Shown here is a 91-nucleotide RNA sequence from Melaminivora alkalimesophila, a member of the family "SAH (S-adenosyl-L-homocysteine) riboswitch aptamer". Pairs were carried over by alignment from the consensus structure, which is taken from published work.
[Rfam]
RNA sequence: CCCUCCAAGGAGCGUUGCAGCGGGCCGCCGGCCGCCCGUCAGGCUUGGAGGGCGCCGCCCGCCGGCGCUGCAGCAACGACGCUCGCCUGUC
Numbered sequence: 001c002c003c004u005c006c007a008a009g010g011a012g013c014g015u016u017g018c019a020g021c022g023g024g025c026c027g028c029c030g031g032c033c034g035c036c037c038g039u040c041a042g043g044c045u046u047g048g049a050g051g052g053c054g055c056c057g058c059c060c061g062c063c064g065g066c067g068c069u070g071c072a073g074c075a076a077c078g079a080c081g082c083u084c085g086c087c088u089g090u091c
Stems, first nucleotide, its partner, number of pairs: 002051007021038005